Description:
This 79-nucleotide sequence from Pseudanabaena sp. FACHB-2040 belongs to the Rfam family "Fluoride riboswitch aptamer (crcB RNA motif)". On this family, see Zhao et al., Nat Chem Biol 2017: "An excited state underlies gene regulation of a transcriptional riboswitch".
[Rfam]
RNA sequence: GCAUUAAUGGGUGAUGGAGCUCACCCUGACCGCUGAAGUGACUUAGCUGUUCACUUAAGCUGAUGGCUCCUACUUGUCU
Numbered sequence: 001g002c003a004u005u006a007a008u009g010g011g012u013g014a015u016g017g018a019g020c021u022c023a024c025c026c027u028g029a030c031c032g033c034u035g036a037a038g039u040g041a042c043u044u045a046g047c048u049g050u051u052c053a054c055u056u057a058a059g060c061u062g063a064u065g066g067c068u069c070c071u072a073c074u075u076g077u078c079u
Stems, first nucleotide, its partner, number of pairs: 010025004016070006032060003